Rfam assigns this 375-nucleotide RNA from Alistipes sp. An31A to the family "Bacterial RNase P class A". It is annotated as a ribozyme. The base pairs follow the family's consensus structure, which is taken from published work. The organism belongs to Alistipes, within Bacteria.

[Rfam]
RNA sequence: GCGCAGGUCCGCUCUGUCGCCGCCGGCUCGGCCGGGGGAGGAAAGUCCGGGCAACGCAGAGCGCCACGCAAGCCAAUCACUUGAUAUCCGUGAGGGUAUAGGAGCGUAACAGAGAAGAACCGCCCCGCUGUCGGGUUCGCCCGCAGCGGUGGUAAGGGUGAAAAGGCGGGGUAAGAGCCCACCGCAGAGGCAGUGAUGUCGUCUGGCCGUACGUCUCGUGGGUUGCAAGACCAUGUAUACCGGCAAUUAAGGGUUGCUCGCCCGAUGCCGGGGGGUAGGUUGCUUGAGACGGCAGGAGACUGCCGCCCUAGAUAAAUGACAGAGACCCGGAGGCAACUCCGGGGACAGAACCCGGCUUACAGGACCUGCACACUU
Numbered sequence: 001g002c003g004c005a006g007g008u009c010c011g012c013u014c015u016g017u018c019g020c021c022g023c024c025g026g027c028u029c030g031g032c033c034g035g036g037g038g039a040g041g042a043a044a045g046u047c048c049g050g051g052c053a054a055c056g057c058a059g060a061g062c063g064c065c066a067c068g069c070a071a072g073c074c075a076a077u078c079a080c081u082u083g084a085u086a087u088c089c090g091u092g093a094g095g096g097u098a099u100a101g102g103a104g105c106g107u108a109a110c111a112g113a114g115a116a117g118a119a120c121c122g123c124c125c126c127g128c129u130g131u132c133g134g135g136u137u138c139g140c141c142c143g144c145a146g147c148g149g150u151g152g153u154a155a156g157g158g159u160g161a162a163a164a165g166g167c168g169g170g171g172u173a174a175g176a177g178c179c180c181a182c183c184g185c186a187g188a189g190g191c192a193g194u195g196a197u198g199u200c201g202u203c204u205g206g207c208c209g210u211a212c213g214u215c216u217c218g219u220g221g222g223u224u225g226c227a228a229g230a231c232c233a234u235g236u237a238u239a240c241c242g243g244c245a246a247u248u249a250a251g252g253g254u255u256g257c258u259c260g261c262c263c264g265a266u267g268c269c270g271g272g273g274g275g276u277a278g279g280u281u282g283c284u285u286g287a288g289a290c291g292g293c294a295g296g297a298g299a300c301u302g303c304c305g306c307c308c309u310a311g312a313u314a315a316a317u318g319a320c321a322g323a324g325a326c327c328c329g330g331a332g333g334c335a336a337c338u339c340c341g342g343g344g345a346c347a348g349a350a351c352c353c354g355g356c357u358u359a360c361a362g363g364a365c366c367u368g369c370a371c372a373c374u375u
Stems, first nucleotide, its partner, number of pairs: 001371001003369008011360001012324007020038002023035005043358003047355005052225004059259004064221005069083004084099001086097004100216002104214005120157002122153003125149006165183002168180003184207001185205004190199003229281004240271005251263004288307001290305006